RNA sequence: GAAACGCCGUCUGGAGAGCCGUCACGCCAUGUGACGCACCGAAGGAGCAACUGCCGCAGGCCGAUUCCUGCAGCACGAAUCUCUCAGGUACCAAGGACAGGGGGAGCGGC
Numbered sequence: 001g002a003a004a005c006g007c008c009g010u011c012u013g014g015a016g017a018g019c020c021g022u023c024a025c026g027c028c029a030u031g032u033g034a035c036g037c038a039c040c041g042a043a044g045g046a047g048c049a050a051c052u053g054c055c056g057c058a059g060g061c062c063g064a065u066u067c068c069u070g071c072a073g074c075a076c077g078a079a080u081c082u083c084u085c086a087g088g089u090a091c092c093a094a095g096g097a098c099a100g101g102g103g104g105a106g107c108g109g110c
Stems, first nucleotide, its partner, number of pairs: 007104002010101004020036004038089003041085002045083003052075003